[Rfam]
Rfam assigns this 127-nucleotide sequence from Enterococcus sp. PFB1-1 to the family "FMN riboswitch aptamer (RFN element)". The literature on the family includes a 2002 paper in Nucleic Acids Res by Vitreschak et al., "Regulation of riboflavin biosynthesis and transport genes in bacteria by transcriptional and translational attenuation". Rfam links the family to the GO term FMN binding.
RNA sequence: GUUCGUCUUCAGGGGCAGGGUGAAAUUCCCGACCGGUGGUAAUAGUCCACGACCCACUAAUUGAUUUUAGUGGCCGAUUCGGUGAAAUUCCGAUACCGACAGUAAAGUCUGGAUAAAGAAGAUAGGG
Numbered sequence: 001g002u003u004c005g006u007c008u009u010c011a012g013g014g015g016c017a018g019g020g021u022g023a024a025a026u027u028c029c030c031g032a033c034c035g036g037u038g039g040u041a042a043u044a045g046u047c048c049a050c051g052a053c054c055c056a057c058u059a060a061u062u063g064a065u066u067u068u069a070g071u072g073g074c075c076g077a078u079u080c081g082g083u084g085a086a087a088u089u090c091c092g093a094u095a096c097c098g099a100c101a102g103u104a105a106a107g108u109c110u111g112g113a114u115a116a117a118g119a120a121g122a123u124a125g126g127g
Stems, first nucleotide, its partner, number of pairs: 003125001005123006018030003032108002034098002036050004045096002054073002079093004100111003
Dot-bracket structure: ..(.((((((.......(((.......))).[[((((((.....[[))))...((................)).....((((.......)))).]])).(((....]])))......)))))).)..